This 47-nucleotide sequence from Enterobacteriaceae bacterium RIT714 belongs to the Rfam family "Guanidine-II riboswitch aptamer (mini-ykkC)". On this family, see Sherlock et al., Biochemistry 2017: "Biochemical Validation of a Second Guanidine Riboswitch Class in Bacteria". NCBI's taxonomy places the organism under Bacteria, Pseudomonadati, Gammaproteobacteria, Enterobacterales, Enterobacteriaceae.

RNA sequence: CCCCAUGGACGACCAUGGGUGAGCCGAUUUUCGGCGGGACGACCCGC
Numbered sequence: 001c002c003c004c005a006u007g008g009a010c011g012a013c014c015a016u017g018g019g020u021g022a023g024c025c026g027a028u029u030u031u032c033g034g035c036g037g038g039a040c041g042a043c044c045c046g047c
Stems, first nucleotide, its partner, number of pairs: 002019007034047005